[Rfam]
Shown here is a 97-nucleotide RNA sequence, a member of the family "Rhodo-rpoB RNA". Rfam's curators put it in the seed alignment.
RNA sequence: GGAUCGAGUGGCACGCGGUGGGACGCGCGCCGAGAAUGGAUCCGAUUGACUGUCAUCACUGACGCGCCGGCGGCUGUGGCCCCCGACAGCCGGUCCG
Numbered sequence: 001g002g003a004u005c006g007a008g009u010g011g012c013a014c015g016c017g018g019u020g021g022g023a024c025g026c027g028c029g030c031c032g033a034g035a036a037u038g039g040a041u042c043c044g045a046u047u048g049a050c051u052g053u054c055a056u057c058a059c060u061g062a063c064g065c066g067c068c069g070g071c072g073g074c075u076g077u078g079g080c081c082c083c084c085g086a087c088a089g090c091c092g093g094u095c096c097g
Stems, first nucleotide, its partner, number of pairs: 001043005010031003014027004068097003071093001072091005